[Rfam]
RNA sequence: GCCGAGCUGGGUAGCGCCAGUUUGUAAUCCAAGUGGAGGCACUAAGGUGAUUGGGAUACAGCUCUGGUCUGGCUUGGUUGGGCUGGAAAGUGCAUUAUGUCGACCUGCCCACUCCAAGUUGCGAGAUGAAUCACGGGACCUGGGCUAAGGCUCGAGUUUCGUGGCUCCUAAAUUGGAGGGCACCGCGUGAGGCUGGUUUAACAGAGCAGCGAAAACCUCCAGCUCACAACAGUGGAGGGACAACGGGCCGCAGCACAUCCAGUCCAAUAUACCUUGUGGGCCUGGUUGCUAGACCAUUACCUUU
Numbered sequence: 001g002c003c004g005a006g007c008u009g010g011g012u013a014g015c016g017c018c019a020g021u022u023u024g025u026a027a028u029c030c031a032a033g034u035g036g037a038g039g040c041a042c043u044a045a046g047g048u049g050a051u052u053g054g055g056a057u058a059c060a061g062c063u064c065u066g067g068u069c070u071g072g073c074u075u076g077g078u079u080g081g082g083c084u085g086g087a088a089a090g091u092g093c094a095u096u097a098u099g100u101c102g103a104c105c106u107g108c109c110c111a112c113u114c115c116a117a118g119u120u121g122c123g124a125g126a127u128g129a130a131u132c133a134c135g136g137g138a139c140c141u142g143g144g145c146u147a148a149g150g151c152u153c154g155a156g157u158u159u160c161g162u163g164g165c166u167c168c169u170a171a172a173u174u175g176g177a178g179g180g181c182a183c184c185g186c187g188u189g190a191g192g193c194u195g196g197u198u199u200a201a202c203a204g205a206g207c208a209g210c211g212a213a214a215a216c217c218u219c220c221a222g223c224u225c226a227c228a229a230c231a232g233u234g235g236a237g238g239g240a241c242a243a244c245g246g247g248c249c250g251c252a253g254c255a256c257a258u259c260c261a262g263u264c265c266a267a268u269a270u271a272c273c274u275u276g277u278g279g280g281c282c283u284g285g286u287u288g289c290u291a292g293a294c295c296a297u298u299a300c301c302u303u304u
Base pairs, nucleotide, nucleotide: 001040002039003038004023005022006021007020008019009018010017028037029036030035044303045302046301047300048299049298050297051296053294057291058290059288060287061286063285064284066282067281069280070279072277073276076273077272078271080265081264082263083262084261085260086259087258090256091255092254095252101250102249104247105246106245107244109239110238112237113236114235115234116233118230119229120228121227123225124224125223128167129166131164132163133162134161135160136159137158138157139156141154142153143152144151145150174221175220176219177218178217179216186211187210188209193204194203195202
Rfam assigns this 304-nucleotide RNA from Senna tora to the family "Plant signal recognition particle RNA".
It scores 230 bits against the family's covariance model.
Pairs were carried over by alignment from the consensus structure, which is taken from published work.